[Rfam]
RNA sequence: GGUCGGGCGUGCAACGAAUACAACACCCGAAAGGGGAAUAAGUUCGCCUGACUUUGCCAGGUUAUCAGCGCCCGGCCACCAGUAU
Numbered sequence: 001g002g003u004c005g006g007g008c009g010u011g012c013a014a015c016g017a018a019u020a021c022a023a024c025a026c027c028c029g030a031a032a033g034g035g036g037a038a039u040a041a042g043u044u045c046g047c048c049u050g051a052c053u054u055u056g057c058c059a060g061g062u063u064a065u066c067a068g069c070g071c072c073c074g075g076c077c078a079c080c081a082g083u084a085u
Stems, first nucleotide, its partner, number of pairs: 001077009013044003017039001026035003046062005
The record is an 85-nucleotide RNA sequence from Nitrosomonas aestuarii, which matches "sRNA-Xcc1" in Rfam.
Taxonomically the source falls in Nitrosomonas (Bacteria, Betaproteobacteria, Nitrosomonadales, Nitrosomonadaceae).
On this family, see Chen et al., RNA Biol 2011: "sRNA-Xcc1, an integron-encoded transposon- and plasmid-transferred trans-acting sRNA, is under the positive control of the key virulence regulators HrpG and HrpX of Xanthomonas campestris pathovar campestris".
By type it is a small RNA.
The family's consensus secondary structure was predicted with RNAalifold.